[Rfam]
RNA sequence: AUGGAUAAAUGAUGAUAAACAAACCUUGAACUCUCUCACUGAUUAUGUGAUGGAAAACCUAAGGUCUGAUCUCUUU
Numbered sequence: 001a002u003g004g005a006u007a008a009a010u011g012a013u014g015a016u017a018a019a020c021a022a023a024c025c026u027u028g029a030a031c032u033c034u035c036u037c038a039c040u041g042a043u044u045a046u047g048u049g050a051u052g053g054a055a056a057a058c059c060u061a062a063g064g065u066c067u068g069a070u071c072u073c074u075u076u
Base pairs, nucleotide, nucleotide: 001076003074004073005072007070